[Rfam]
RNA sequence: AUAUAUGCUGAGUGGCCAGAUUAUUAUGAUCUCUGAACCCAUGAUAAUCUGGCCACUCAGUGUACUU
Numbered sequence: 001a002u003a004u005a006u007g008c009u010g011a012g013u014g015g016c017c018a019g020a021u022u023a024u025u026a027u028g029a030u031c032u033c034u035g036a037a038c039c040c041a042u043g044a045u046a047a048u049c050u051g052g053c054c055a056c057u058c059a060g061u062g063u064a065c066u067u
Stems, first nucleotide, its partner, number of pairs: 004064014019049010
The family of this 67-nucleotide sequence from Cnephaeus nilssonii is "mir-9256 microRNA precursor family". Its family is annotated with RISC complex and miRNA-mediated post-transcriptional gene silencing in the Gene Ontology. The base pairs follow the family's consensus structure, which was predicted with RNAalifold.